[Rfam]
RNA sequence: GCGCACCUUCACUCUACACCUCGCUCUUCAUGGGUUUGGCUUGUUUUGAAAAGGAUGCAAGAAAAAAUUCGGGAGGUUCGAAGACUUGUAAAAUUUACUUGAUGAAUUUACGAGUUCAAAACUAUCACCACAUUU
Numbered sequence: 001g002c003g004c005a006c007c008u009u010c011a012c013u014c015u016a017c018a019c020c021u022c023g024c025u026c027u028u029c030a031u032g033g034g035u036u037u038g039g040c041u042u043g044u045u046u047u048g049a050a051a052a053g054g055a056u057g058c059a060a061g062a063a064a065a066a067a068u069u070c071g072g073g074a075g076g077u078u079c080g081a082a083g084a085c086u087u088g089u090a091a092a093a094u095u096u097a098c099u100u101g102a103u104g105a106a107u108u109u110a111c112g113a114g115u116u117c118a119a120a121a122c123u124a125u126c127a128c129c130a131c132a133u134u135u
Stems, first nucleotide, its partner, number of pairs: 003058003006054004015043002019039002024034003071129002073126002075123004083116009096106001098104001
Caenorhabditis snoRNA ceN41: a 135-nucleotide RNA sequence from Caenorhabditis bovis. It is annotated as an H/ACA-box small nucleolar RNA. Its family is annotated with RNA processing and nucleolus in the Gene Ontology. Taxonomically the source falls in Caenorhabditis (Eukaryota, Ecdysozoa, Nematoda, Peloderinae).